[Rfam]
The family of this 46-nucleotide sequence from Erpetoichthys calabaricus is "Histone 3' UTR stem-loop".
It scores 42 bits against the family's covariance model.
By type it is a cis-regulatory element.
The base pairs follow the family's consensus structure, which is taken from published work.

RNA sequence: CCAACGGCUCUUUUCAGAGCCACCCAUCUACUCAAAAAAAAGAGCU
Numbered sequence: 001c002c003a004a005c006g007g008c009u010c011u012u013u014u015c016a017g018a019g020c021c022a023c024c025c026a027u028c029u030a031c032u033c034a035a036a037a038a039a040a041a042g043a044g045c046u
Base pairs, nucleotide, nucleotide: 006021007020008019009018010017011016